This 157-nucleotide sequence from Blastomyces parvus belongs to the Rfam family "A. fumigatus sRNA Afu_254". A reference for the family is Jochl et al. (2008), "Small ncRNA transcriptome analysis from Aspergillus fumigatus suggests a novel mechanism for regulation of protein synthesis", Nucleic Acids Res. The base pairs follow the family's consensus structure, which was predicted with WAR. Rfam 15.1 lists 185 matches to the family in 142 species.
[Rfam]
RNA sequence: UAAUACAUCCAAAGGCAAUCCAAAAUCUUACCGAAUUUCAAAACAAAUUCUCCCCCAAAUCAACCCAUCCAAAAAUGUCUCCCUGCAACUGCAACUGCUGUGCCGGUGACUGCAACUCCUGCAGCUGCACUAGCUGCUCUGUGAGUUGAGAAAAACA
Numbered sequence: 001u002a003a004u005a006c007a008u009c010c011a012a013a014g015g016c017a018a019u020c021c022a023a024a025a026u027c028u029u030a031c032c033g034a035a036u037u038u039c040a041a042a043a044c045a046a047a048u049u050c051u052c053c054c055c056c057a058a059a060u061c062a063a064c065c066c067a068u069c070c071a072a073a074a075a076u077g078u079c080u081c082c083c084u085g086c087a088a089c090u091g092c093a094a095c096u097g098c099u100g101u102g103c104c105g106g107u108g109a110c111u112g113c114a115a116c117u118c119c120u121g122c123a124g125c126u127g128c129a130c131u132a133g134c135u136g137c138u139c140u141g142u143g144a145g146u147u148g149a150g151a152a153a154a155a156c157a
Stems, first nucleotide, its partner, number of pairs: 084108003091101003112137003121128002
Dot-bracket structure: ...................................................................................(((....(((.....)))....)))...(((......((....))......)))....................